[Rfam]
RNA sequence: CUCGACAAAGGCAAAACUGGCGAAAGCCAGUGACGCAAAGCUACAGGGGCCUUACUUCUCCUGAAAGGGACAAGCAGCCAGCCAGCCGCCGAAC
Numbered sequence: 001c002u003c004g005a006c007a008a009a010g011g012c013a014a015a016a017c018u019g020g021c022g023a024a025a026g027c028c029a030g031u032g033a034c035g036c037a038a039a040g041c042u043a044c045a046g047g048g049g050c051c052u053u054a055c056u057u058c059u060c061c062u063g064a065a066a067g068g069g070a071c072a073a074g075c076a077g078c079c080a081g082c083c084a085g086c087c088g089c090c091g092a093a094c
Stems, first nucleotide, its partner, number of pairs: 003091002011036002016031006034081001040086003046083002048079003

A member of the RNA family "c-di-GMP-I-GGC riboswitch aptamer" from Paenibacillus pectinilyticus, 94 nucleotides long. The family's consensus secondary structure is taken from published work. A search with the family's covariance model found it, with a score of 61 bits.